[Rfam]
RNA sequence: GAGUCUAAUAUCUAUACGAGUGUUCGGGUAUUAAACCCCUACGCGGAAUAAAAGUAAACGGAGGUAGGAAGGGGUAACCCUAUACUAUCGACCGAUCCUAAUGUCCUCGAAUAGAUUUAAGUAAGAGUAUAGCUAUUAGAACCCGAAAGAUAGUAAACUAUACCUAAAUAGGGUAAAGCUAGAGGAAACUCUAGUAGAGGCUCGUAGCGGUUCUAACGUACAAAUCGAUCGUUAAAUUUAGGUAUAGGGGCGAAAGACUAAUCGAACUAUCUAGUAGCUAGUU
Number, nucleotide and partner (000 for none) at each position: 001g000002a000003g000004u000005c139006u138007a137008a136009u135010a134011u000012c132013u131014a130015u129016a128017c127018g000019a000020g044021u043022g042023u000024u000025c000026g038027g037028g036029u035030a000031u000032u000033a000034a000035a029036c028037c027038c026039c000040u000041a000042c022043g021044c020045g000046g000047a000048a055049u054050a000051a000052a000053a000054g049055u048056a000057a000058a000059c000060g000061g000062a000063g089064g088065u087066a086067g085068g000069a000070a081071g080072g079073g000074g000075u000076a000077a000078c000079c072080c071081u070082a000083u000084a000085c067086u066087a065088u064089c063090g000091a122092c121093c000094g118095a117096u115097c114098c000099u000100a000101a000102u109103g108104u000105c000106c000107u000108c103109g102110a000111a000112u000113a000114g097115a096116u000117u095118u094119a000120a000121g092122u091123a000124a000125g000126a000127g017128u016129a015130u014131a013132g012133c000134u010135a009136u008137u007138a006139g005140a000141a000142c281143c000144c000145g278146a000147a000148a000149g271150a270151u269152a268153g267154u266155a000156a000157a000158c247159u246160a245161u244162a243163c242164c241165u240166a239167a238168a237169u235170a000171g203172g202173g201174u200175a000176a000177a000178g195179c194180u193181a192182g191183a190184g189185g000186a000187a000188a000189c184190u183191c182192u181193a180194g179195u178196a000197g000198a000199g000200g174201c173202u172203c171204g000205u000206a000207g232208c231209g230210g229211u000212u228213c227214u000215a000216a225217c000218g000219u000220a000221c000222a000223a000224a000225u216226c000227g213228a212229u210230c209231g208232u207233u000234a000235a169236a000237u168238u167239u166240a165241g164242g163243u162244a161245u160246a159247g158248g000249g259250g258251c000252g000253a000254a000255a000256g000257a000258c250259u249260a000261a000262u000263c000264g000265a000266a154267c153268u152269a151270u150271c149272u000273a000274g000275u000276a000277g000278c145279u000280a000281g142282u000283u000
This 283-nucleotide part of an RNA from Zymoseptoria ardabiliae belongs to the Rfam family "Eukaryotic large subunit ribosomal RNA". The literature on the family includes a 2002 paper in BMC Bioinformatics by Cannone et al., "The comparative RNA web (CRW) site: an online database of comparative sequence and structure information for ribosomal, intron, and other RNAs". Gene Ontology terms of the family: structural constituent of ribosome and ribosome. Taxonomically the source falls in Zymoseptoria ardabiliae (Eukaryota, leotiomyceta, Dothideomycetes, Zymoseptoria). It is one of the family's seed sequences.